[Rfam]
RNA: Small nucleolar RNA ncR3
RNA sequence: GAGGCUUCUACCGUCUUAUGAAGUUGCUGUGACAGUGAAUUUUUCUUCCUUUGGCUGAUUCGGAGAUGCAUUA
Numbered sequence: 001g002a003g004g005c006u007u008c009u010a011c012c013g014u015c016u017u018a019u020g021a022a023g024u025u026g027c028u029g030u031g032a033c034a035g036u037g038a039a040u041u042u043u044u045c046u047u048c049c050u051u052u053g054g055c056u057g058a059u060u061c062g063g064a065g066a067u068g069c070a071u072u073a
Stems, first nucleotide, its partner, number of pairs: 009037003014034001016032005044066005